Rfam assigns this 111-nucleotide RNA from Oryza sativa to the family "mir-172 microRNA precursor family".
RNA sequence: CUUGUUGCGGGUGCAGCGUCAUCAAGAUUCACGUGUGCCGCACGGCACACGUAUCGGUUUUCAAGUGUAGUCAUCGUGCGUGAAUCUUGAUGAUGCUGCACCAGCAAAGAG
Numbered sequence: 001c002u003u004g005u006u007g008c009g010g011g012u013g014c015a016g017c018g019u020c021a022u023c024a025a026g027a028u029u030c031a032c033g034u035g036u037g038c039c040g041c042a043c044g045g046c047a048c049a050c051g052u053a054u055c056g057g058u059u060u061u062c063a064a065g066u067g068u069a070g071u072c073a074u075c076g077u078g079c080g081u082g083a084a085u086c087u088u089g090a091u092g093a094u095g096c097u098g099c100a101c102c103a104g105c106a107a108a109g110a111g
Base pairs, nucleotide, nucleotide: 010102011101012100013099014098015097016096017095018094019093020092021091022090023089024088025087026086027085028084029083030082032080

Rfam's curators write: mir-172 has been experimentally verified in Arabidopsis thaliana. This family is thought to target mRNAs coding for APETALA2-like transcription factors. On this family, see Jones-Rhoades and Bartel, Mol Cell 2004: "Computational Identification of Plant MicroRNAs and Their Targets, Including a Stress-Induced miRNA". Rfam links the family to the GO terms RISC complex and miRNA-mediated post-transcriptional gene silencing.